[Rfam]
RNA sequence: GAGAACUGUUACUUCAAGAAAUCAAAUGAUAGGGUAACGCCUAUAAGGGUUUCCUCUGAUACUCCGACAUGCGUGAAGCAGUGGAUAAUAACUGUAAAUGUAUGAAGCUCGGUAAAGUCGGCUGAGAGUGACCGUAAGAUGAAAUUUGUCACGAAAGUCAUCCAGAGGUGGAUGAUGUCACCUAUAGGCCGGGAGUCUAUAAA
Numbered sequence: 001g002a003g004a005a006c007u008g009u010u011a012c013u014u015c016a017a018g019a020a021a022u023c024a025a026a027u028g029a030u031a032g033g034g035u036a037a038c039g040c041c042u043a044u045a046a047g048g049g050u051u052u053c054c055u056c057u058g059a060u061a062c063u064c065c066g067a068c069a070u071g072c073g074u075g076a077a078g079c080a081g082u083g084g085a086u087a088a089u090a091a092c093u094g095u096a097a098a099u100g101u102a103u104g105a106a107g108c109u110c111g112g113u114a115a116a117g118u119c120g121g122c123u124g125a126g127a128g129u130g131a132c133c134g135u136a137a138g139a140u141g142a143a144a145u146u147u148g149u150c151a152c153g154a155a156a157g158u159c160a161u162c163c164a165g166a167g168g169u170g171g172a173u174g175a176u177g178u179c180a181c182c183u184a185u186a187g188g189c190c191g192g193g194a195g196u197c198u199a200u201a202a203a
Stems, first nucleotide, its partner, number of pairs: 018053006032042003054195004064112004068104007077095001080093003119191005128181005133153003140148002157176008